This 129-nucleotide RNA from Salmo salar belongs to the Rfam family "Small nucleolar RNA SNORA3/SNORA45 family". The source organism's lineage runs through Eukaryota, Bilateria, Chordata, Gnathostomata and Salmo. The family's consensus secondary structure was predicted with RNAalifold. A reference for the family is Huttenhofer et al. (2001), "RNomics: an experimental approach that identifies 201 candidates for novel, small, non-messenger RNAs in mouse", EMBO J. The members of this family belong to the H/ACA class of snoRNAs which are thought to guide the sites of modification of uridines to pseudouridines. This family includes mouse snoMBI-28 and human homologues ACA3 (SNORA3) and ACA3-2 (SNORA45). The family's RNA type in Rfam is H/ACA-box small nucleolar RNA. Its family is annotated with nucleolus and RNA processing in the Gene Ontology.
RNA sequence: CCAGAGACUGAGUCUCAUCUUGACAAACACCAUUGUCUUGGUGUGCUAGAGUUCUCUCAGAGUGAAGACUGUUCCUAUUCACCGACUGGUCCUCUCAUAGGUCAAUCGGCCACAUGGACCGUUACAAGU
Numbered sequence: 001c002c003a004g005a006g007a008c009u010g011a012g013u014c015u016c017a018u019c020u021u022g023a024c025a026a027a028c029a030c031c032a033u034u035g036u037c038u039u040g041g042u043g044u045g046c047u048a049g050a051g052u053u054c055u056c057u058c059a060g061a062g063u064g065a066a067g068a069c070u071g072u073u074c075c076u077a078u079u080c081a082c083c084g085a086c087u088g089g090u091c092c093u094c095u096c097a098u099a100g101g102u103c104a105a106u107c108g109g110c111c112a113c114a115u116g117g118a119c120c121g122u123u124a125c126a127a128g129u
Stems, first nucleotide, its partner, number of pairs: 003057004007052003011047002014045001016043004022037004069121001071119004082109004087104003091101002